Notes: DUF3800-XI RNA: a 48-nucleotide RNA.
RNA sequence: UGGGCUGGUCAAGCGACCCUGGUCCACCGAGCGGCGGGGAAUUUCCCC
Numbered sequence: 001u002g003g004g005c006u007g008g009u010c011a012a013g014c015g016a017c018c019c020u021g022g023u024c025c026a027c028c029g030a031g032c033g034g035c036g037g038g039g040a041a042u043u044u045c046c047c048c
Stems, first nucleotide, its partner, number of pairs: 001026006007018004
Dot-bracket structure: ((((((((((....))))..))))))......................
Rfam describes the family as follows. Actinobacteria, Firmicutes, Proteobacteria, Spirochaetes (1 example). Rfam's curators put it in the seed alignment.